[Rfam]
small Cajal body-specific RNA 18: an 83-nucleotide RNA from Tupaia belangeri. NCBI's taxonomy places the organism under Eukaryota, Bilateria, Craniata, Theria, Tupaia belangeri. scaRNAs are a specific class of small nuclear RNAs which localise to the Cajal bodies and guide the modification of RNA polymerase II transcribed spliceosomal RNAs U1, U2, U4, U5 and U12. This C/D box domain U91 (also known as U4-8) was identified by Darzacq and is predicted to guide the 2'O-ribose methylation of U4 snRNA C8. Pairs were carried over by alignment from the consensus structure, which was predicted with PFOLD. A search with the family's covariance model found it, with a score of 99 bits. A reference for the family is Darzacq et al. (2002), "Cajal body-specific small nuclear RNAs: a novel class of 2'-O-methylation and pseudouridylation guide RNAs", EMBO J.

RNA sequence: UGGCCACUGAUGACGUGACCACUGCGCAAUCUGAGUUCUAAGAACCAGGUGAUGGAGCGUGUUCUGAGAAACGACUGAGGCCG
Numbered sequence: 001u002g003g004c005c006a007c008u009g010a011u012g013a014c015g016u017g018a019c020c021a022c023u024g025c026g027c028a029a030u031c032u033g034a035g036u037u038c039u040a041a042g043a044a045c046c047a048g049g050u051g052a053u054g055g056a057g058c059g060u061g062u063u064c065u066g067a068g069a070a071a072c073g074a075c076u077g078a079g080g081c082c083g
Stems, first nucleotide, its partner, number of pairs: 002082004038048002